[Rfam]
RNA sequence: AAGCAAGGAACUGCGACUAAAGACGCUCCGUUCUGUAGCAACGUCGCUGUGACUCUCUUCCUGAGAG
Dot-bracket structure: ..........(.(((((.......(((.(.....).)))...))))).)...(((((.....)))))